[Rfam]
RNA sequence: CUCCCGCUAACCAAGACCUAUGGGAGGAUAAAUUACGUCUUAAUAUCCAGUAGUGAGGGAUUACUGGAAAUAAGUUUCGCA
Numbered sequence: 001c002u003c004c005c006g007c008u009a010a011c012c013a014a015g016a017c018c019u020a021u022g023g024g025a026g027g028a029u030a031a032a033u034u035a036c037g038u039c040u041u042a043a044u045a046u047c048c049a050g051u052a053g054u055g056a057g058g059g060a061u062u063a064c065u066g067g068a069a070a071u072a073a074g075u076u077u078c079g080c081a
Stems, first nucleotide, its partner, number of pairs: 001026006014040004046068007
A member of the RNA family "PhotoRC-II RNA", 81 nucleotides long. Rfam classes the family as a cis-regulatory element. The sequence is in the family's curated seed alignment. The family's consensus secondary structure is taken from published work.